[Rfam]
RNA sequence: CAUUAAUUUGCUCUUUUAGUAUUUGUCUAGGAGGGUUCUUCGUGAGAAGAAGCCCUU
Numbered sequence: 001c002a003u004u005a006a007u008u009u010g011c012u013c014u015u016u017u018a019g020u021a022u023u024u025g026u027c028u029a030g031g032a033g034g035g036u037u038c039u040u041c042g043u044g045a046g047a048a049g050a051a052g053c054c055c056u057u
Base pairs, nucleotide, nucleotide: 033054034053036051037050038049039048040047041046